The record is a 74-nucleotide RNA from Parnassius apollo, which matches "Mammalian CPEB3 ribozyme" in Rfam. A search with the family's covariance model found it, with a score of 53 bits. The base pairs follow the family's consensus structure, which is taken from published work. Lineage of the source: Eukaryota > Dicondylia > Aparaglossata > Parnassini > Parnassius.
RNA sequence: UUUGUAUGUCAUGGGGUCAUUGUAGAAGCGUGCUCGUCGCGACCCCUGCCAGUCCUUUUCAGGGCUGCAAUGCC
Numbered sequence: 001u002u003u004g005u006a007u008g009u010c011a012u013g014g015g016g017u018c019a020u021u022g023u024a025g026a027a028g029c030g031u032g033c034u035c036g037u038c039g040c041g042a043c044c045c046c047u048g049c050c051a052g053u054c055c056u057u058u059u060c061a062g063g064g065c066u067g068c069a070a071u072g073c074c
Stems, first nucleotide, its partner, number of pairs: 013046006025074001028040003050067007